[Rfam]
RNA sequence: GAAGCCGGCACGGUAAGGCCCAGCCAGCCUCCGUUAUCCAGCCUUGGAGCCAAAGCCGUGAGGUGAGGUUUAAGCGUAGGCAGGAAACCAUGCGAGCCGUAAUGCGAAAGCGUGAAGUGAUAGAGCCCCGUUAGAGAAUACAGAGUGGAAGCCGAUGCCUUCACCUCGGCAGCAGGCAACAACGUUUGGUCGAUAGAGGCGAGAACAAACGGGUUUCACCGGGGUCUGAGAGCA
Numbered sequence: 001g002a003a004g005c006c007g008g009c010a011c012g013g014u015a016a017g018g019c020c021c022a023g024c025c026a027g028c029c030u031c032c033g034u035u036a037u038c039c040a041g042c043c044u045u046g047g048a049g050c051c052a053a054a055g056c057c058g059u060g061a062g063g064u065g066a067g068g069u070u071u072a073a074g075c076g077u078a079g080g081c082a083g084g085a086a087a088c089c090a091u092g093c094g095a096g097c098c099g100u101a102a103u104g105c106g107a108a109a110g111c112g113u114g115a116a117g118u119g120a121u122a123g124a125g126c127c128c129c130g131u132u133a134g135a136g137a138a139u140a141c142a143g144a145g146u147g148g149a150a151g152c153c154g155a156u157g158c159c160u161u162c163a164c165c166u167c168g169g170c171a172g173c174a175g176g177c178a179a180c181a182a183c184g185u186u187u188g189g190u191c192g193a194u195a196g197a198g199g200c201g202a203g204a205a206c207a208a209a210c211g212g213g214u215u216u217c218a219c220c221g222g223g224g225u226c227u228g229a230g231a232g233c234a
Base pairs, nucleotide, nucleotide: 010034011033012032013031017029018028019027023200024199037085038084039083041081042080043079044078045076046075047071048070049069050068051067055064056063057062123226125225126224127223128222129221130220145219146218147217148216149215150214151177152176153175156171157170158169159168183211184210185209186208187207188206190204191203
Dot-bracket structure: .........((((...(((...[[..))).))))..(((.(((((((((((...(((....)))..)))))...)).)))).))).....................................(.((((((..............(((((((((..((((........))))...))).....((((((.((.......]]..)).))))))..)))))))))))))........
Record summary:
A member of the RNA family "Group II catalytic intron D1-D4-6" from Koleobacter methoxysyntrophicus, 234 nucleotides long. The match comes from Rfam's covariance-model search (123 bits). The family has 174 seed sequences and 1,617 matches in Rfam 15.1. Gene Ontology term of the family: Group II intron splicing. Rfam's curators write: Group II introns are found in rRNA, tRNA and mRNA of organelles in fungi, plants and protists, and also in mRNA in bacteria.